[Rfam]
RNA sequence: CCCUACAUUCGAAAGUGAUCGUGGGCUGCCCGUGCAUUAGUCAUUGAUAGUGCAGGGAGAGGAAUUGCUGAAAGCAUUUUCCCCAUGUUUGGAGGGUUCACGCCUAUCCCUUCUGAACUCGGGAGCUGUCACACA
Numbered sequence: 001c002c003c004u005a006c007a008u009u010c011g012a013a014a015g016u017g018a019u020c021g022u023g024g025g026c027u028g029c030c031c032g033u034g035c036a037u038u039a040g041u042c043a044u045u046g047a048u049a050g051u052g053c054a055g056g057g058a059g060a061g062g063a064a065u066u067g068c069u070g071a072a073a074g075c076a077u078u079u080u081c082c083c084c085a086u087g088u089u090u091g092g093a094g095g096g097u098u099c100a101c102g103c104c105u106a107u108c109c110c111u112u113c114u115g116a117a118c119u120c121g122g123g124a125g126c127u128g129u130c131a132c133a134c135a
Base pairs, nucleotide, nucleotide: 001057002056003055004054006052007051008050009049014045015044016043017042018041019040021038023037025035026034067132069131070130071129073127074126075125087118088117089116090115091114092112093111094110095109096108
Small nucleolar RNA SNORA71: a 135-nucleotide sequence from Cervus elaphus. Rfam describes the family as follows. The members of this family belong to the H/ACA class of snoRNAs which bind a number of proteins (including dyskerin, Gar1p and Nop10p) to form snoRNP complexes. This class of snoRNAs are thought to guide the sites of modification of uridines to pseudouridines by forming direct base pairing interactions with substrate RNAs. This family includes U71 (SNORA71), ACA39 (SNORA39) and ACA60 (SNORA60). U71 and ACA60 are predicted to guide the pseudouridylation of U406 and U1004 in 18S rRNA respectively. Lineage of the source: Eukaryota > Eumetazoa > Amniota > Laurasiatheria > Cervus elaphus. For this family Rfam cites "The family of box ACA small nucleolar RNAs is defined by an evolutionarily conserved secondary structure and ubiquitous sequence elements essential for RNA accumulation" (Ganot et al., Genes Dev, 1997). Rfam classes the family as an H/ACA-box small nucleolar RNA. It scores 118 bits against the family's covariance model.